[Rfam]
RNA sequence: UUGUGUGUGAGGAGUAAGAGUGAUAUGAAAACGCCUUUGGAGUCGAAACACGGCAAGACGCCCGGAGGCUUUUCAUUUU
Number, nucleotide and partner (000 for none) at each position: 001u000002u000003g000004u000005g000006u000007g000008u000009g000010a000011g000012g000013a000014g000015u000016a000017a000018g000019a000020g000021u000022g000023a000024u000025a000026u075027g074028a073029a072030a071031a000032c000033g000034c068035c067036u000037u000038u000039g063040g062041a000042g059043u058044c057045g000046a000047a000048a000049c000050a000051c000052g000053g000054c000055a000056a000057g044058a043059c042060g000061c000062c040063c039064g000065g000066a000067g035068g034069c000070u000071u030072u029073u028074c027075a026076u000077u000078u000079u000